[Rfam]
RNA sequence: UGAUGACAUGAUCUCCGGAAUCUCUGUACUGCCUCUGAUGAAUGUACGUUUGAACCCUUUUCCAUCUGAUGACUGUUACAGCCUGGUC
Numbered sequence: 001u002g003a004u005g006a007c008a009u010g011a012u013c014u015c016c017g018g019a020a021u022c023u024c025u026g027u028a029c030u031g032c033c034u035c036u037g038a039u040g041a042a043u044g045u046a047c048g049u050u051u052g053a054a055c056c057c058u059u060u061u062c063c064a065u066c067u068g069a070u071g072a073c074u075g076u077u078a079c080a081g082c083c084u085g086g087u088c
Stems, first nucleotide, its partner, number of pairs: 002088003006084001
A member of the RNA family "Small nucleolar RNA MBII-202" from Vombatus ursinus, 88 nucleotides long. For this family Rfam cites "RNomics: an experimental approach that identifies 201 candidates for novel, small, non-messenger RNAs in mouse" (Huttenhofer et al., EMBO J, 2001). NCBI's taxonomy places the organism under Eukaryota, Bilateria, Craniata, Tetrapoda, Vombatus. The family has 30 seed sequences and 745 matches in Rfam 15.1.